RNA sequence: UGGCUACAAAAUAACUUAUUCUGUAGCCACUUUGAGUUACGAUAAUUACUAUGUUAAUUUAUGAUAUUAUAGUAACUCUUUACGAAGUGGUUUACUAUAACGUUAUAGUAAAUAUCCCCAUGUGUUAUAGUAACCCAACUAUCGUAAAUAUGUAUUGACAUUAUCGUAAAUUAUAUAUAAAAUAUCGUAAAUUAUCGUAAAUUUUGUAGUUG
Numbered sequence: 001u002g003g004c005u006a007c008a009a010a011a012u013a014a015c016u017u018a019u020u021c022u023g024u025a026g027c028c029a030c031u032u033u034g035a036g037u038u039a040c041g042a043u044a045a046u047u048a049c050u051a052u053g054u055u056a057a058u059u060u061a062u063g064a065u066a067u068u069a070u071a072g073u074a075a076c077u078c079u080u081u082a083c084g085a086a087g088u089g090g091u092u093u094a095c096u097a098u099a100a101c102g103u104u105a106u107a108g109u110a111a112a113u114a115u116c117c118c119c120a121u122g123u124g125u126u127a128u129a130g131u132a133a134c135c136c137a138a139c140u141a142u143c144g145u146a147a148a149u150a151u152g153u154a155u156u157g158a159c160a161u162u163a164u165c166g167u168a169a170a171u172u173a174u175a176u177a178u179a180a181a182a183u184a185u186c187g188u189a190a191a192u193u194a195u196c197g198u199a200a201a202u203u204u205u206g207u208a209g210u211u212g
Stems, first nucleotide, its partner, number of pairs: 001212012016200002029198002033194001037190008046182002050177004055173008066164002069161002074155001079148005087142006093132011108116001